[Rfam]
RNA: SAM riboswitch aptamer (S box leader)
Organism: Flammeovirga pectinis
RNA sequence: UGUUUAUAAAGAAGAGGCGAGAGACUAGGCUCAUUGACCCUCUAGCAACCUUCAAGAAAUUGAAAAGGUGCUACAUCCUAGCCUAAGUUAUUAGGAAAUAUAAACG
Numbered sequence: 001u002g003u004u005u006a007u008a009a010a011g012a013a014g015a016g017g018c019g020a021g022a023g024a025c026u027a028g029g030c031u032c033a034u035u036g037a038c039c040c041u042c043u044a045g046c047a048a049c050c051u052u053c054a055a056g057a058a059a060u061u062g063a064a065a066a067g068g069u070g071c072u073a074c075a076u077c078c079u080a081g082c083c084u085a086a087g088u089u090a091u092u093a094g095g096a097a098a099u100a101u102a103a104a105c106g
Base pairs, nucleotide, nucleotide: 001106002105003104004103005102006101007100008099013043014042015041016040017039021032022031023030026081028079029077044072045071046070047069049068050067051064052063053062054061076098082095083094084093085092086091